[Rfam]
Rfam assigns this 276-nucleotide RNA sequence from Amycolatopsis pithecellobii to the family "Actinobacteria sRNA Ms_IGR-5". The literature on the family includes a 2013 paper in RNA by Li et al., "Identification of small RNAs in Mycobacterium smegmatis using heterologous Hfq". A search with the family's covariance model found it, with a score of 71 bits. The family's RNA type in Rfam is small RNA.
RNA sequence: ACACGGGAAAGGAGGUGGUCCUGAGUUGAAUAUUUACAGGACUCGUGAGGUGGCUGUCCGCUAGCGGACGAAGCUGCACCAAGCUCGUGACGGCGGCAAACCGUCGCGAAGUGCCGCGCCCCCGUUGACGCCGCCGGCGCCCGGGGCCGCGACAGGACAGUGGAGGCCUGAGCGAAUACCAGGCAGUCACCGGACCCCCGGCGUCCCGAGCAUGGUCCGGCUCGGGCCGGCAACGGCUGACGACGUUGCCGGAGCAUGCGCCGGGGGUUUCCUGUC
Numbered sequence: 001a002c003a004c005g006g007g008a009a010a011g012g013a014g015g016u017g018g019u020c021c022u023g024a025g026u027u028g029a030a031u032a033u034u035u036a037c038a039g040g041a042c043u044c045g046u047g048a049g050g051u052g053g054c055u056g057u058c059c060g061c062u063a064g065c066g067g068a069c070g071a072a073g074c075u076g077c078a079c080c081a082a083g084c085u086c087g088u089g090a091c092g093g094c095g096g097c098a099a100a101c102c103g104u105c106g107c108g109a110a111g112u113g114c115c116g117c118g119c120c121c122c123c124g125u126u127g128a129c130g131c132c133g134c135c136g137g138c139g140c141c142c143g144g145g146g147c148c149g150c151g152a153c154a155g156g157a158c159a160g161u162g163g164a165g166g167c168c169u170g171a172g173c174g175a176a177u178a179c180c181a182g183g184c185a186g187u188c189a190c191c192g193g194a195c196c197c198c199c200g201g202c203g204u205c206c207c208g209a210g211c212a213u214g215g216u217c218c219g220g221c222u223c224g225g226g227c228c229g230g231c232a233a234c235g236g237c238u239g240a241c242g243a244c245g246u247u248g249c250c251g252g253a254g255c256a257u258g259c260g261c262c263g264g265g266g267g268u269u270u271c272c273u274g275u276c
Stems, first nucleotide, its partner, number of pairs: 014058006059174004064169001192270013206225006